[Rfam]
RNA sequence: GGUUAUGUAGCUCAGCUGGUUAGAGCACAGCAUUCAUAAUGCUGGGGUCGGUGGUUCAAGUCCACCCAUAACCA
Numbered sequence: 001g002g003u004u005a006u007g008u009a010g011c012u013c014a015g016c017u018g019g020u021u022a023g024a025g026c027a028c029a030g031c032a033u034u035c036a037u038a039a040u041g042c043u044g045g046g047g048u049c050g051g052u053g054g055u056u057c058a059a060g061u062c063c064a065c066c067c068a069u070a071a072c073c074a
Stems, first nucleotide, its partner, number of pairs: 001073007010026004028044005050066005
Dot-bracket structure: (((((((..((((.........)))).(((((.......))))).....(((((.......)))))))))))).
Rfam assigns this 74-nucleotide RNA from Pseudothioglobus singularis to the family "tRNA". It is annotated as a transfer RNA.